[Rfam]
RNA sequence: GUCGGCUAUGGUGACAUGUAUCCGGUGUCGGUUCCAGGCAAAAUCAUCGGCGCCCUUUGUUGCAUAUGCGGAGUGCUGGUCAUCGCUCUGCCCAUUCCGAUUAUUGUCAACAAC
Numbered sequence: 001g002u003c004g005g006c007u008a009u010g011g012u013g014a015c016a017u018g019u020a021u022c023c024g025g026u027g028u029c030g031g032u033u034c035c036a037g038g039c040a041a042a043a044u045c046a047u048c049g050g051c052g053c054c055c056u057u058u059g060u061u062g063c064a065u066a067u068g069c070g071g072a073g074u075g076c077u078g079g080u081c082a083u084c085g086c087u088c089u090g091c092c093c094a095u096u097c098c099g100a101u102u103a104u105u106g107u108c109a110a111c112a113a114c
Stems, first nucleotide, its partner, number of pairs: 001114002004111001008107004013102002018097001020095002037077004049063001